About this RNA:
Small nucleolar RNA snoR99: a 119-nucleotide RNA from Leersia perrieri. The literature on the family includes a 2002 paper in Curr Biol by Marker et al., "Experimental RNomics: identification of 140 candidates for small non-messenger RNAs in the plant Arabidopsis thaliana". The match comes from Rfam's covariance-model search (56 bits). It is annotated as an H/ACA-box small nucleolar RNA.

[Rfam]
RNA sequence: UUGCCUAUGGGAUGAACAGAUCUCUGUAUUUAUGACCAUUUUUUCACUUAGUCAGCUGUAGCUGAUCAUUUGAAUGUUUCACUUAGUCAGCUGUAGCUGAUCAUUUGAAUGGGAAAUGA
Numbered sequence: 001u002u003g004c005c006u007a008u009g010g011g012a013u014g015a016a017c018a019g020a021u022c023u024c025u026g027u028a029u030u031u032a033u034g035a036c037c038a039u040u041u042u043u044u045c046a047c048u049u050a051g052u053c054a055g056c057u058g059u060a061g062c063u064g065a066u067c068a069u070u071u072g073a074a075u076g077u078u079u080c081a082c083u084u085a086g087u088c089a090g091c092u093g094u095a096g097c098u099g100a101u102c103a104u105u106u107g108a109a110u111g112g113g114a115a116a117u118g119a
Base pairs, nucleotide, nucleotide: 036112037111038110039109040108051101052100053099054098055097056096057095058094059093060092061091062090063089064088065087066086